Shown here is a 35-nucleotide sequence from Oncorhynchus mykiss, a member of the family "Iron response element I". Lineage of the source: Eukaryota > Actinopterygii > Neopterygii > Salmonidae > Oncorhynchus.

RNA sequence: GAAUUUUUUGCUUCAACAGUGAUUGAACGGAACUC
Numbered sequence: 001g002a003a004u005u006u007u008u009u010g011c012u013u014c015a016a017c018a019g020u021g022a023u024u025g026a027a028c029g030g031a032a033c034u035c
Base pairs, nucleotide, nucleotide: 001035002034004032006031007030008029010028012027013026014025015024016023017021

For this family Rfam cites "Identification of the iron-responsive element for the translational regulation of human ferritin mRNA" (Hentze et al., Science, 1987).